The record is a 95-nucleotide RNA sequence from Olsenella sp. HMSC062G07, which matches "Glycine riboswitch aptamer" in Rfam. Rfam describes the family as follows. This family represents the bacterial glycine riboswitch. NCBI's taxonomy places the organism under Bacteria, Actinomycetota, Coriobacteriales, Atopobiaceae, Olsenella. It scores 51 bits against the family's covariance model. The base pairs follow the family's consensus structure.
RNA sequence: AUGACGGGGUCGGGAGAGGUCGUCGCGCGGUCGGUUGCGCGGACGAGGCCGAAGGGGAGGCAGAAACUCUCAGGCAAAAGGACCGAUCCUCGACG
Numbered sequence: 001a002u003g004a005c006g007g008g009g010u011c012g013g014g015a016g017a018g019g020u021c022g023u024c025g026c027g028c029g030g031u032c033g034g035u036u037g038c039g040c041g042g043a044c045g046a047g048g049c050c051g052a053a054g055g056g057g058a059g060g061c062a063g064a065a066a067c068u069c070u071c072a073g074g075c076a077a078a079a080g081g082a083c084c085g086a087u088c089c090u091c092g093a094c095g
Stems, first nucleotide, its partner, number of pairs: 006090008020046004048075003051071002055069003